The family of this 96-nucleotide RNA from Mesoplasma corruscae is "Bacterial small signal recognition particle RNA". About the family: The signal recognition particle (SRP) is a universally conserved ribonucleoprotein involved in the co-translational targeting of proteins to membranes. For this family Rfam cites "Temperature-responsive in vitro RNA structurome of Yersinia pseudotuberculosis" (Righetti et al., Proc Natl Acad Sci U S A, 2016). It scores 55 bits against the family's covariance model. Its family is annotated with signal recognition particle, plasma membrane targeting and SRP-dependent cotranslational protein targeting to membrane, signal sequence recognition in the Gene Ontology. The family is grouped with related families in Rfam's "SRP clan".
[Rfam]
RNA sequence: UAAAUAUGCCAUGAUAAAGAUAACGCUUGAAUGAGUCAGGACCGGAAGGUAGCAGCUAUAAGAGAAUGUGUCUUGUAUCAUGGUUUUUAUUUUGAA
Numbered sequence: 001u002a003a004a005u006a007u008g009c010c011a012u013g014a015u016a017a018a019g020a021u022a023a024c025g026c027u028u029g030a031a032u033g034a035g036u037c038a039g040g041a042c043c044g045g046a047a048g049g050u051a052g053c054a055g056c057u058a059u060a061a062g063a064g065a066a067u068g069u070g071u072c073u074u075g076u077a078u079c080a081u082g083g084u085u086u087u088u089a090u091u092u093u094g095a096a
Stems, first nucleotide, its partner, number of pairs: 004090003008086001009083006015075001017074006023067001026064003033059001034057003041050003